[Rfam]
RNA sequence: GAAGGAGCAAUAGAAGCCCUUUUUAUGAUUUUAUGAAAAGGGGUUCUAUUGCUCCUUCAUUC
Numbered sequence: 001g002a003a004g005g006a007g008c009a010a011u012a013g014a015a016g017c018c019c020u021u022u023u024u025a026u027g028a029u030u031u032u033a034u035g036a037a038a039a040g041g042g043g044u045u046c047u048a049u050u051g052c053u054c055c056u057u058c059a060u061u062c
Stems, first nucleotide, its partner, number of pairs: 001058014019040008